[Rfam]
RNA sequence: ACCUGCAUCCGAAAGUGAUCGCGGCCCCGCCCGUGGCCCGGUCACCGAUAGUGCAGGGAGAGGAGCCCGACCGCCUUCCCGUGCCGGGGGGGCCGCCCUCGCCCUCCGGGCCCUGUUGCGGUCGGACA
Numbered sequence: 001a002c003c004u005g006c007a008u009c010c011g012a013a014a015g016u017g018a019u020c021g022c023g024g025c026c027c028c029g030c031c032c033g034u035g036g037c038c039c040g041g042u043c044a045c046c047g048a049u050a051g052u053g054c055a056g057g058g059a060g061a062g063g064a065g066c067c068c069g070a071c072c073g074c075c076u077u078c079c080c081g082u083g084c085c086g087g088g089g090g091g092g093c094c095g096c097c098c099u100c101g102c103c104c105u106c107c108g109g110g111c112c113c114u115g116u117u118g119c120g121g122u123c124g125g126a127c128a
Stems, first nucleotide, its partner, number of pairs: 002057007015045007023038004066125001068124007083111003087107006

This 128-nucleotide sequence from Falco tinnunculus belongs to the Rfam family "Small nucleolar RNA SNORA71". By type it is an H/ACA-box small nucleolar RNA. The source organism's lineage runs through Eukaryota, Coelurosauria, Aves, Telluraves and Falco. The match comes from Rfam's covariance-model search (87 bits). The base pairs follow the family's consensus structure, which was predicted with PFOLD. Rfam links the family to the GO terms RNA processing and nucleolus. About the family: The members of this family belong to the H/ACA class of snoRNAs which bind a number of proteins (including dyskerin, Gar1p and Nop10p) to form snoRNP complexes. This class of snoRNAs are thought to guide the sites of modification of uridines to pseudouridines by forming direct base pairing interactions with substrate RNAs. This family includes U71 (SNORA71), ACA39 (SNORA39) and ACA60 (SNORA60).